[Rfam]
RNA sequence: AGGGUGUGAAGAGAGCAGAGCGCCUGAAGAAUGGCUCCUCUGUGAAUAACACACCAACAGCAACUUGGGCCUAUUCUUCACAGGUGGCAGGAUACCAUGACUUUCCUGUGACAUUAGCCCCAAACAU
Number, nucleotide and partner (000 for none) at each position: 001a000002g000003g055004g054005u053006g052007u051008g050009a000010a000011g000012a000013g000014a000015g043016c042017a041018g040019a039020g038021c000022g035023c034024c033025u000026g000027a000028a000029g000030a000031a000032u000033g024034g023035c022036u000037c000038c020039u019040c018041u017042g016043u015044g000045a000046a000047u000048a000049a000050c008051a007052c006053a005054c004055c003056a000057a000058c000059a000060g000061c000062a000063a000064c000065u000066u000067g000068g120069g119070c000071c117072u000073a000074u000075u113076c000077u111078u000079c000080a109081c108082a000083g102084g101085u100086g000087g098088c000089a000090g096091g095092a000093u000094a000095c091096c090097a000098u087099g000100a085101c084102u083103u000104u000105c000106c000107u000108g081109u080110g000111a077112c000113a075114u000115u000116a000117g071118c000119c069120c068121c000122a000123a000124a000125c000126a000127u000
RNA: Small nucleolar RNA SNORA11
Organism: Pipistrellus kuhlii